[Rfam]
RNA sequence: UGGGCAGUAUCAUUUCAUAUGAGCUGCACCUUUAAGCAAUUCGUUUUAAAACCAAAAAGUGAAUAGUUCUGCCUUGAUCUUUCAUGACGGGGACAGAGGG
Numbered sequence: 001u002g003g004g005c006a007g008u009a010u011c012a013u014u015u016c017a018u019a020u021g022a023g024c025u026g027c028a029c030c031u032u033u034a035a036g037c038a039a040u041u042c043g044u045u046u047u048a049a050a051a052c053c054a055a056a057a058a059g060u061g062a063a064u065a066g067u068u069c070u071g072c073c074u075u076g077a078u079c080u081u082u083c084a085u086g087a088c089g090g091g092g093a094c095a096g097a098g099g100g
Base pairs, nucleotide, nucleotide: 002030003029004027005026006025007024008023010022011021012020013019069096070095071094072092073091074090075089076088078087079086
The record is a 100-nucleotide RNA from Falsibacillus pallidus, which matches "pan motif" in Rfam. It scores 56 bits against the family's covariance model.